[Rfam]
RNA sequence: AGUAGGUACUCUGGAGAGACUUGUUAGCAAGCGCCGAAGGUGAUUUAAAACUCUCAGGCACCAGGACAGAGGGGUGAAU
Dot-bracket structure: ......(.(((((......((((....)))).(((((..(.(........).))).))).......))))).)......
Glycine riboswitch aptamer: a 79-nucleotide RNA from Pelistega indica. It scores 54 bits against the family's covariance model. The source organism's lineage runs through Bacteria, Pseudomonadota, Betaproteobacteria, Burkholderiales and Pelistega.